[Rfam]
RNA sequence: ACAGUACAAACUGAACAGGCAUUAUCUUUGGGUAUAAUGCCGGGCUACAGUAUUUGUAGCAACAGAUGGAGCUUUAUACAUCUGUGGGACAGUA
Numbered sequence: 001a002c003a004g005u006a007c008a009a010a011c012u013g014a015a016c017a018g019g020c021a022u023u024a025u026c027u028u029u030g031g032g033u034a035u036a037a038u039g040c041c042g043g044g045c046u047a048c049a050g051u052a053u054u055u056g057u058a059g060c061a062a063c064a065g066a067u068g069g070a071g072c073u074u075u076a077u078a079c080a081u082c083u084g085u086g087g088g089a090c091a092g093u094a
Stems, first nucleotide, its partner, number of pairs: 010093004016088001018041004023034004044060005062085006

This 94-nucleotide RNA sequence from Sphaerochaeta pleomorpha belongs to the Rfam family "NiCo (Nickel/Cobalt) riboswitch aptamer".
The match comes from Rfam's covariance-model search (73 bits).
The family is grouped with related families in Rfam's "NiCo_riboswitches".
The source organism's lineage runs through Bacteria, Spirochaetota, Spirochaetia, Sphaerochaetaceae and Sphaerochaeta pleomorpha.
Gene Ontology terms of the family: metal ion homeostasis and cobalt ion binding.
The base pairs follow the family's consensus structure, which is taken from published work.